[Rfam]
RNA sequence: AUGUGCCUGGUUCCCUGUAUGCCACCCAGGUACCCCCAAUCUCAUGCUGCCUAGGUUGGGUAUUUUGGGUGGCGUGCAUGGAAUCAAGCAUGU
Numbered sequence: 001a002u003g004u005g006c007c008u009g010g011u012u013c014c015c016u017g018u019a020u021g022c023c024a025c026c027c028a029g030g031u032a033c034c035c036c037c038a039a040u041c042u043c044a045u046g047c048u049g050c051c052u053a054g055g056u057u058g059g060g061u062a063u064u065u066u067g068g069g070u071g072g073c074g075u076g077c078a079u080g081g082a083a084u085c086a087a088g089c090a091u092g093u
Stems, first nucleotide, its partner, number of pairs: 001093006008086007016078009027067003

The record is a 93-nucleotide sequence from Asparagus officinalis, which matches "mir-160 microRNA precursor family" in Rfam.
The organism belongs to Asparagus, within Eukaryota.
The family has 7 seed sequences and 1,502 matches in Rfam 15.1.
Pairs were carried over by alignment from the consensus structure, which was predicted with PFOLD.